MIR7504 microRNA precursor family: a 123-nucleotide RNA from Gossypium australe.
A search with the family's covariance model found it, with a score of 102 bits.
Pairs were carried over by alignment from the consensus structure, which was predicted with RNAalifold.
RNA sequence: GAUAGGAGAAUGAAAAAUUAGAUUUUUCCUCCUUAUUUUCAGCCUUUUCCUCUUGAAAAAAUUCAAAUCCAACUGAAAAUGCUAAAAUUAAAGGGUAAAAUUUUGAUUUAUCAUGCUCCUAUU
Numbered sequence: 001g002a003u004a005g006g007a008g009a010a011u012g013a014a015a016a017a018u019u020a021g022a023u024u025u026u027u028c029c030u031c032c033u034u035a036u037u038u039u040c041a042g043c044c045u046u047u048u049c050c051u052c053u054u055g056a057a058a059a060a061a062u063u064c065a066a067a068u069c070c071a072a073c074u075g076a077a078a079a080u081g082c083u084a085a086a087a088u089u090a091a092a093g094g095g096u097a098a099a100a101u102u103u104u105g106a107u108u109u110a111u112c113a114u115g116c117u118c119c120u121a122u123u
Stems, first nucleotide, its partner, number of pairs: 001123008010114004015109008024100004029095003033091003037087003041083002045079004